[Rfam]
RNA sequence: UGGCACCCAAUGUGGGGCUGGAUACUGGGGGCAUCAUGAGGGAGGAUGAAAAAAGGAAGAGCGCACUUGCUAAAUCUCAAGCAAUUCGGAGAUGCGCGCGGGAGCCUGCUGCAACCGAACUGAAGGUAAGUUGUGCUGUCUGAUCAUGGGUCAAGGAUUAAGCCAGCAUCAGAUUUAUGUUACGCAGUUGAGGGAGGCUCUCAAGACAAGAGGAGUAAAGGUUAAGAAUGUGGAUAUUUAUUUCAUUUCUUUGAUUUUGUGAAAGACAUUUGUCCUU
Number, nucleotide and partner (000 for none) at each position: 001u000002g000003g000004c000005a000006c030007c029008c028009a000010a000011u000012g025013u024014g023015g000016g000017g000018c000019u000020g000021g000022a000023u014024a013025c012026u000027g000028g008029g007030g006031g000032c000033a000034u049035c048036a047037u046038g000039a000040g000041g000042g000043a000044g000045g000046a037047u036048g035049a034050a000051a000052a000053a000054a000055g000056g000057a000058a000059g000060a000061g000062c000063g000064c000065a000066c000067u000068u000069g000070c000071u000072a000073a000074a000075u000076c000077u000078c000079a000080a000081g127082c126083a000084a000085u000086u123087c122088g000089g000090a000091g000092a000093u117094g116095c000096g000097c000098g112099c111100g110101g109102g000103a000104g000105c000106c000107u000108g000109c101110u100111g099112c098113a000114a000115c000116c094117g093118a000119a000120c000121u000122g087123a086124a000125g000126g082127u081128a000129a000130g000131u000132u000133g000134u153135g152136c000137u000138g000139u150140c149141u148142g147143a000144u000145c000146a000147u142148g141149g140150g139151u000152c135153a134154a000155g000156g000157a000158u000159u000160a201161a000162g198163c197164c196165a000166g000167c000168a000169u000170c000171a000172g000173a000174u000175u000176u000177a000178u000179g000180u000181u000182a000183c000184g000185c000186a000187g000188u000189u000190g000191a000192g000193g000194g000195a000196g164197g163198c162199u000200c000201u160202c000203a000204a000205g000206a000207c000208a000209a000210g252211a251212g250213g249214a248215g247216u000217a000218a000219a239220g238221g237222u236223u000224a000225a000226g000227a000228a000229u000230g000231u000232g000233g000234a000235u000236a222237u221238u220239u219240a000241u000242u000243u000244c000245a000246u000247u215248u214249c213250u212251u211252u210253g000254a000255u000256u000257u000258u000259g000260u000261g000262a277263a276264a000265g274266a273267c272268a000269u000270u000271u000272g267273u266274c265275c000276u263277u262
Shown here is a 277-nucleotide RNA sequence from Nannospalax galili, a member of the family "Mason-Pfizer monkey virus packaging signal". Rfam describes the family as follows. This family represents a group of sequences that are related to the Mason-Pfizer monkey virus (MPMV) packaging signal. The packaging signal is located in the 5' UTR and is required for specific RNA encapsidation. Rfam classes the family as a cis-regulatory element.